[Rfam]
The record is a 136-nucleotide RNA from Carassius auratus, which matches "U11 spliceosomal RNA" in Rfam. For this family Rfam cites "Additional low-abundance human small nuclear ribonucleoproteins: U11, U12, etc" (Montzka and Steitz, Proc Natl Acad Sci U S A, 1988). It scores 110 bits against the family's covariance model. The family's RNA type in Rfam is spliceosomal small nuclear RNA. Pairs were carried over by alignment from the consensus structure, which is taken from published work.
RNA sequence: AAAAAGGGCAUCUGCUUUGUUUGGCAUAGCUGUGGAAGGGACUCUCUGACACAGUUACGGAAUCGCUAUCAAGAGAUUUCGGAUGCAUAAUUUUUUAGACUCGGAGCUGCUAAUGACUAUCAGUCUUGGCGCUCCA
Numbered sequence: 001a002a003a004a005a006g007g008g009c010a011u012c013u014g015c016u017u018u019g020u021u022u023g024g025c026a027u028a029g030c031u032g033u034g035g036a037a038g039g040g041a042c043u044c045u046c047u048g049a050c051a052c053a054g055u056u057a058c059g060g061a062a063u064c065g066c067u068a069u070c071a072a073g074a075g076a077u078u079u080c081g082g083a084u085g086c087a088u089a090a091u092u093u094u095u096u097a098g099a100c101u102c103g104g105a106g107c108u109g110c111u112a113a114u115g116a117c118u119a120u121c122a123g124u125c126u127u128g129g130c131g132c133u134c135c136a
Stems, first nucleotide, its partner, number of pairs: 008086005013026004027057008035047001037045002058081007104134004109130005115125004